[Rfam]
RNA sequence: AUGACUUGUGAUAAAACUAUAUUAAUUUCACCAUAAUUACCAUAAAAAAAUCAAAAAUGGAUUAUGGUAAAAC
Numbered sequence: 001a002u003g004a005c006u007u008g009u010g011a012u013a014a015a016a017c018u019a020u021a022u023u024a025a026u027u028u029c030a031c032c033a034u035a036a037u038u039a040c041c042a043u044a045a046a047a048a049a050a051u052c053a054a055a056a057a058u059g060g061a062u063u064a065u066g067g068u069a070a071a072a073c
Base pairs, nucleotide, nucleotide: 030068031067032066033065034064035063036062037061

The family of this 73-nucleotide sequence is "dfrA-dnaX RNA".
Rfam classes the family as a small RNA.
It is one of the family's seed sequences.